[Rfam]
RNA sequence: AUCUCUGCUGCCCAUGGUGCAGUGCUGCAUCUCUGGUCAGUUGAUAGUCUGAGAUGAAGCACUGUAGCUCGGGACGGAGGGCAG
Dot-bracket structure: ..........(((..(.(((((((((.((((((.(((........).)).)))))).))))))))).)..)))...........
RNA: mir-143 microRNA precursor family
Organism: Oryzias latipes